[Rfam]
Record summary:
The record is a 75-nucleotide RNA sequence from Odobenus rosmarus, which matches "mir-328 microRNA precursor family" in Rfam. For this family Rfam cites "Identification of many microRNAs that copurify with polyribosomes in mammalian neurons" (Kim et al., Proc Natl Acad Sci U S A, 2004). The organism belongs to Odobenus rosmarus, within Eukaryota.
RNA sequence: UGGAGCAGGGGGGCAGGAGGGGCUCAGGGAGAAGGCGUGCGCAGCCCCUGGCCCUAUCUGCCCUUCGGCCCCCGC
Numbered sequence: 001u002g003g004a005g006c007a008g009g010g011g012g013g014c015a016g017g018a019g020g021g022g023c024u025c026a027g028g029g030a031g032a033a034g035g036c037g038u039g040c041g042c043a044g045c046c047c048c049u050g051g052c053c054c055u056a057u058c059u060g061c062c063c064u065u066c067g068g069c070c071c072c073c074g075c
Base pairs, nucleotide, nucleotide: 002071003070006068008066009065010064011063012062013061014060015059016058017057019055020054021053022052023051025050026049027048028047029046